[Rfam]
RNA sequence: UGUGUGCCGAAAAGCACACACAUAUAAUAAUGCGAUGUUUUGUGCAAAGCACAAAACUCGUCAGAUAAACAGUGGGGCUGAAUUUCUGCCGAACUGUUUAUCAUAU
Numbered sequence: 001u002g003u004g005u006g007c008c009g010a011a012a013a014g015c016a017c018a019c020a021c022a023u024a025u026a027a028u029a030a031u032g033c034g035a036u037g038u039u040u041u042g043u044g045c046a047a048a049g050c051a052c053a054a055a056a057c058u059c060g061u062c063a064g065a066u067a068a069a070c071a072g073u074g075g076g077g078c079u080g081a082a083u084u085u086c087u088g089c090c091g092a093a094c095u096g097u098u099u100a101u102c103a104u105a106u
Base pairs, nucleotide, nucleotide: 001018002017003016004015005014033060034059035058037057038056039055040054041053042052043051044050064102065101066100067099068098069097070096071095072094073093076090077089
RNA: TD-2 RNA